[Rfam]
RNA sequence: UCCGCCGAGGGGCGCUGCAUGCCACCGCGACCGCGGCCGGCUCAGGCUCGGCGGGAUCAUCCGUUUCCAACGGCGCCCGCGACGA
Numbered sequence: 001u002c003c004g005c006c007g008a009g010g011g012g013c014g015c016u017g018c019a020u021g022c023c024a025c026c027g028c029g030a031c032c033g034c035g036g037c038c039g040g041c042u043c044a045g046g047c048u049c050g051g052c053g054g055g056a057u058c059a060u061c062c063g064u065u066u067c068c069a070a071c072g073g074c075g076c077c078c079g080c081g082a083c084g085a
Stems, first nucleotide, its partner, number of pairs: 002054007021041003026036001
Dot-bracket structure: .(((((((............(((..(.........)..)))......)))))))...............................

Shown here is an 85-nucleotide RNA sequence from Coralloluteibacterium stylophorae, a member of the family "SAH (S-adenosyl-L-homocysteine) riboswitch aptamer". A search with the family's covariance model found it, with a score of 47 bits. The literature on the family includes a 2008 paper in Mol Cell by Wang et al., "Riboswitches that sense S-adenosylhomocysteine and activate genes involved in coenzyme recycling". The family's consensus secondary structure is taken from published work. Taxonomically the source falls in Coralloluteibacterium (Bacteria, Pseudomonadati, Pseudomonadota, Lysobacteraceae).